[Rfam]
RNA sequence: GUUGUCGGAUUUAUCUCAAUCCACGUGUUGGAGUGGAUUGGGAUGAAAUUUAGUUCAAGUUCCACUCCAACCCACCCCAACAUAUAUGGAUUGAUGCGAAUCGGACU
Numbered sequence: 001g002u003u004g005u006c007g008g009a010u011u012u013a014u015c016u017c018a019a020u021c022c023a024c025g026u027g028u029u030g031g032a033g034u035g036g037a038u039u040g041g042g043a044u045g046a047a048a049u050u051u052a053g054u055u056c057a058a059g060u061u062c063c064a065c066u067c068c069a070a071c072c073c074a075c076c077c078c079a080a081c082a083u084a085u086a087u088g089g090a091u092u093g094a095u096g097c098g099a100a101u102c103g104g105a106c107u
Stems, first nucleotide, its partner, number of pairs: 004106003008102005014096001016094008025085001026082005033075004038070004044064002